A member of the RNA family "TPP riboswitch aptamer (THI element)", 113 nucleotides long.

RNA sequence: GGUCGAUGCUAGGGGUGUCCGGGUCUGCUGUAAUGGCGUUCCCAGUGACUGAGAUAAUACCCUCACCACCUGAUCAGGGUAAUGCCUGCGAAGGGAAGUGUCGACCAUCAUCC
Numbered sequence: 001g002g003u004c005g006a007u008g009c010u011a012g013g014g015g016u017g018u019c020c021g022g023g024u025c026u027g028c029u030g031u032a033a034u035g036g037c038g039u040u041c042c043c044a045g046u047g048a049c050u051g052a053g054a055u056a057a058u059a060c061c062c063u064c065a066c067c068a069c070c071u072g073a074u075c076a077g078g079g080u081a082a083u084g085c086c087u088g089c090g091a092a093g094g095g096a097a098g099u100g101u102c103g104a105c106c107a108u109c110a111u112c113c
Stems, first nucleotide, its partner, number of pairs: 006101005011063004016057001017049003069094003075088004
Pairs were carried over by alignment from the consensus structure, which is taken from published work.